RNA: Plastid-rps12 3UTR RNA
Organism: Hydrangea ampla
RNA sequence: GGUUUCCAUUGGUGCAAAUCCAAUCACUUCAAUUUAAGAUGAGAAGUAAUUCCCCAUUGGUAGCAAAUGGUUAUUCAUUAAGCGGGGGAAAUC
Numbered sequence: 001g002g003u004u005u006c007c008a009u010u011g012g013u014g015c016a017a018a019u020c021c022a023a024u025c026a027c028u029u030c031a032a033u034u035u036a037a038g039a040u041g042a043g044a045a046g047u048a049a050u051u052c053c054c055c056a057u058u059g060g061u062a063g064c065a066a067a068u069g070g071u072u073a074u075u076c077a078u079u080a081a082g083c084g085g086g087g088g089a090a091a092u093c
Stems, first nucleotide, its partner, number of pairs: 009023004052087004056078002059075006